This 98-nucleotide RNA sequence from Boudabousia marimammalium belongs to the Rfam family "mraW RNA". Rfam classes the family as a cis-regulatory element.

RNA sequence: ACAAACAGAUGCAAUGAAAUCUCUGGCCGAAGCUCUGGGGUCACUUCCCCGAUUCCAGAUCAGGUCGGGCAGGGAUUUGGUUGCAUCACCCGAAAGAU
Numbered sequence: 001a002c003a004a005a006c007a008g009a010u011g012c013a014a015u016g017a018a019a020u021c022u023c024u025g026g027c028c029g030a031a032g033c034u035c036u037g038g039g040g041u042c043a044c045u046u047c048c049c050c051g052a053u054u055c056c057a058g059a060u061c062a063g064g065u066c067g068g069g070c071a072g073g074g075a076u077u078u079g080g081u082u083g084c085a086u087c088a089c090c091c092g093a094a095a096g097a098u
Stems, first nucleotide, its partner, number of pairs: 010085006018077002021074005027068004032061001034059008
The base pairs follow the family's consensus structure, which is taken from published work.